The family of this 57-nucleotide RNA sequence from Gossypium anomalum is "Plastid-ndhJ 3UTR RNA". Rfam classes the family as a cis-regulatory element. The literature on the family includes a 2023 paper in Plant Commun by Richter et al., "Retrograde signaling in plants: A critical review focusing on the GUN pathway and beyond". The base pairs follow the family's consensus structure, which was predicted with LocARNA.

RNA sequence: CCAUGAACUUUGUAUCGUGCACAUUACUUAGAUGAACUCUAGAGAGUCACAUAGAAA
Numbered sequence: 001c002c003a004u005g006a007a008c009u010u011u012g013u014a015u016c017g018u019g020c021a022c023a024u025u026a027c028u029u030a031g032a033u034g035a036a037c038u039c040u041a042g043a044g045a046g047u048c049a050c051a052u053a054g055a056a057a
Stems, first nucleotide, its partner, number of pairs: 019037001022034004